[Rfam]
Makes More Granules Regulator RNA (mmgR): a 76-nucleotide sequence from Sphingobium sp. RAC03. SuhB later renamed mmgR (makes more granules regulator) was a putative non-coding RNA found multiple times in the Agrobacterium tumefaciens genome and related alpha-proteobacteria. Other non-coding RNAs uncovered in the same analysis include: speF, ybhL, metA, and serC.Several studies inSinorhizobium meliloti showed that suhB element is indeed a non-coding RNA:firstly it was detected on Northern blot and called Sm8RNA, secondly in an RNAseq study referred to as SmelC689.The mutant phenotype's (strain lacking the small RNA) cytoplasm contains higher content of polyhydroxybutyrate (PBH)storage granules than wild type strain. The sRNA is required to limit the PBH intracellular accumulation when the nitrogen-fixing Sinorhizobium meliloti is under condition of surplus carbon in relation to nitrogen. The match comes from Rfam's covariance-model search (46 bits). Pairs were carried over by alignment from the consensus structure. Its family is annotated with protein binding, response to nitrogen compound and DNA-templated transcription, termination in the Gene Ontology. By type it is a small RNA. Rfam 15.1 lists 1,791 matches to the family in 918 species.
RNA sequence: CAAACUCGCCUUUCAGGCAUCCUCUCCUAAAACUUUUACGGGCUGGUCUUCGGAUCGGCCCUUUUUUUGUCUUGUG
Numbered sequence: 001c002a003a004a005c006u007c008g009c010c011u012u013u014c015a016g017g018c019a020u021c022c023u024c025u026c027c028u029a030a031a032a033c034u035u036u037u038a039c040g041g042g043c044u045g046g047u048c049u050u051c052g053g054a055u056c057g058g059c060c061c062u063u064u065u066u067u068u069g070u071c072u073u074g075u076g
Stems, first nucleotide, its partner, number of pairs: 008018004040061009